Transposase-2 RNA: a 67-nucleotide sequence from Actinopolymorpha pittospori. The family has 151 seed sequences and 214 matches in Rfam 15.1. Taxonomically the source falls in Actinopolymorpha (Bacteria, Actinomycetota, Actinomycetes, Actinopolymorphaceae). The family's consensus secondary structure is taken from published work. The family's RNA type in Rfam is small RNA.
RNA sequence: GAAACGUCAACCGGGCACGGCAUCUACCGGUAAGACCCGGACUCCUUUACCAGAAGGUGCAGGUGUA
Numbered sequence: 001g002a003a004a005c006g007u008c009a010a011c012c013g014g015g016c017a018c019g020g021c022a023u024c025u026a027c028c029g030g031u032a033a034g035a036c037c038c039g040g041a042c043u044c045c046u047u048u049a050c051c052a053g054a055a056g057g058u059g060c061a062g063g064u065g066u067a
Base pairs, nucleotide, nucleotide: 011040012039013038014037015036018029019028020027044063045062046061048059049058050057051056